Shown here is a 72-nucleotide sequence from Equus caballus, a member of the family "mir-9033 microRNA precursor family".
[Rfam]
RNA sequence: AUCUGACCCCAAAGGCUGUGCUUGCACAGGAGCCCAAGGAGGUGCCUCUGAGCCCAGCCUUGGAGGUGAGUC
Numbered sequence: 001a002u003c004u005g006a007c008c009c010c011a012a013a014g015g016c017u018g019u020g021c022u023u024g025c026a027c028a029g030g031a032g033c034c035c036a037a038g039g040a041g042g043u044g045c046c047u048c049u050g051a052g053c054c055c056a057g058c059c060u061u062g063g064a065g066g067u068g069a070g071u072c
Stems, first nucleotide, its partner, number of pairs: 003070002006067003009063004014059005020053005028047003032043003
The source organism's lineage runs through Eukaryota, Chordata, Gnathostomata, Mammalia and Equus. Its family is annotated with RISC complex and miRNA-mediated post-transcriptional gene silencing in the Gene Ontology.